RNA: MIR828 microRNA precursor family
RNA sequence: GUAAUGUUUCUUGCUCAAAUGAGUAUUCCAACAACAGUAGACUUUGAAACAAGAACAUAUGUUUUUGAAUGUUUAUGAUGUUGCUGGCAUCUACUGUUUCUGAGAUGCUCGUUCGAGCAAGAAAUAUUAG
Numbered sequence: 001g002u003a004a005u006g007u008u009u010c011u012u013g014c015u016c017a018a019a020u021g022a023g024u025a026u027u028c029c030a031a032c033a034a035c036a037g038u039a040g041a042c043u044u045u046g047a048a049a050c051a052a053g054a055a056c057a058u059a060u061g062u063u064u065u066u067g068a069a070u071g072u073u074u075a076u077g078a079u080g081u082u083g084c085u086g087g088c089a090u091c092u093a094c095u096g097u098u099u100c101u102g103a104g105a106u107g108c109u110c111g112u113u114c115g116a117g118c119a120a121g122a123a124a125u126a127u128u129a130g
Stems, first nucleotide, its partner, number of pairs: 004127005010121007018113010029102002